RNA: mir-7939 microRNA precursor family
RNA sequence: UAUGAGCCCUCAUGACAUUCUUGUUAUCACUAAAAUCAUGAAUGUUAUGAAGGCCCACGAC
Numbered sequence: 001u002a003u004g005a006g007c008c009c010u011c012a013u014g015a016c017a018u019u020c021u022u023g024u025u026a027u028c029a030c031u032a033a034a035a036u037c038a039u040g041a042a043u044g045u046u047a048u049g050a051a052g053g054c055c056c057a058c059g060a061c
Stems, first nucleotide, its partner, number of pairs: 003057002006054003010050011022038002
Dot-bracket structure: ..((.(((.(((((((((((.((.............)).))))))))))).))).))....